[Rfam]
Nucleotides: 185
Base pairs, nucleotide, nucleotide: 026041028040043089044088045087046086047085048084049083050082051081052080060079061078062077063076064075065074066073091185093183094182095181096180
Number, partner (000 for none) and nucleotide at each position: 001000c002000g003000c004000g005000c006000u007000g008000u009000c010000a011000u012000u013000g014000g015000g016000g017000a018000g019000u020000a021000g022000c023000c024000g025000c026041c027000u028040u029000c030000c031000a032000c033000c034000g035000c036000g037000a038000g039000a040028a041026g042000g043089g044088u045087u046086u047085g048084c049083g050082u051081c052080a053000a054000c055000a056000g057000a058000c059000u060079u061078g062077u063076c064075c065074u066073g067000c068000c069000c070000c071000a072000c073066c074065g075064g076063g077062a078061c079060a080052u081051g082050g083049c084048g085047c086046a087045g088044a089043c090000a091185g092000u093183g094182u095181u096180c097000a098000a099000a100000a101000c102000c103000u104000g105000g106000c107000g108000a109000g110000a111000c112000c113000u114000u115000u116000g117000a118000c119000u120000g121000u122000g123000c124000g125000a126000c127000u128000u129000c130000g131000g132000g133000a134000a135000g136000a137000u138000g139000g140000c141000c142000g143000a144000a145000g146000g147000u148000g149000u150000u151000g152000c153000a154000c155000g156000g157000u158000c159000a160000a161000u162000u163000g164000c165000g166000u167000c168000c169000u170000u171000c172000g173000g174000c175000c176000c177000a178000a179000g180096g181095a182094a183093c184000c185091c
Manganese Mn2+ riboswitch aptamer (yybP-ykoY): a 185-nucleotide RNA sequence from Variovorax sp. Gene Ontology term of the family: manganese ion binding. The organism belongs to Variovorax, within Bacteria. This RNA was originally discovered in E. coli during a large scale screen and was named SraF. The family was later found to exist upstream of related families of protein genes in many bacteria, including the the yybP and ykoK genes in B. subtilis.